[Rfam]
RNA sequence: GGAUUGAUGAUGACUCCCACUCACAACAGCAUUCCUUGGAUAAGCUGAACAAAAUGAGUGCCUCGCCUCGCCUUGCCUCGCCUUGCCCUGCCC
Numbered sequence: 001g002g003a004u005u006g007a008u009g010a011u012g013a014c015u016c017c018c019a020c021u022c023a024c025a026a027c028a029g030c031a032u033u034c035c036u037u038g039g040a041u042a043a044g045c046u047g048a049a050c051a052a053a054a055u056g057a058g059u060g061c062c063u064c065g066c067c068u069c070g071c072c073u074u075g076c077c078u079c080g081c082c083u084u085g086c087c088c089u090g091c092c093c
Stems, first nucleotide, its partner, number of pairs: 001093002004090001030060005036052003
Overview:
Rfam assigns this 93-nucleotide sequence from Erinaceus europaeus to the family "Small nucleolar RNA SNORD116". NCBI's taxonomy places the organism under Eukaryota, Chordata, Euteleostomi, Amniota, Erinaceus. Rfam classes the family as a C/D-box small nucleolar RNA. On this family, see Cavaille et al., Proc Natl Acad Sci U S A 2000: "Identification of brain-specific and imprinted small nucleolar RNA genes exhibiting an unusual genomic organization".